[Rfam]
RNA sequence: GUGUCUGCUGUUGGAUGCGCUUGAUAGUCGCACCCUUGGGACCGACUACCAGCCCGACCACACGGUAAGGUAC
Numbered sequence: 001g002u003g004u005c006u007g008c009u010g011u012u013g014g015a016u017g018c019g020c021u022u023g024a025u026a027g028u029c030g031c032a033c034c035c036u037u038g039g040g041a042c043c044g045a046c047u048a049c050c051a052g053c054c055c056g057a058c059c060a061c062a063c064g065g066u067a068a069g070g071u072a073c
Stems, first nucleotide, its partner, number of pairs: 004069001006067006012060003017055001019053003023049001025048004030043001033040002
RNA: mir-1905 microRNA precursor family